A member of the RNA family "tRNA", 68 nucleotides long. About the family: Transfer RNA (tRNA) molecules are approximately 80 nucleotides in length. Gene Ontology term of the family: triplet codon-amino acid adaptor activity. The sequence is in the family's curated seed alignment. Pairs were carried over by alignment from the consensus structure, which is taken from published work.

RNA sequence: CACAGUGUAGCUUAAUCACAAAGCAUCUGGCCUACACCCAGAAGAAUUCAUAAAAAUGAACACUUUGA
Dot-bracket structure: ((.((((..((((.......)))).(((((.......)))))....((((......)))))))).)).
Numbered sequence: 001c002a003c004a005g006u007g008u009a010g011c012u013u014a015a016u017c018a019c020a021a022a023g024c025a026u027c028u029g030g031c032c033u034a035c036a037c038c039c040a041g042a043a044g045a046a047u048u049c050a051u052a053a054a055a056a057u058g059a060a061c062a063c064u065u066u067g068a
Stems, first nucleotide, its partner, number of pairs: 001067002004064004010024004026042005047060004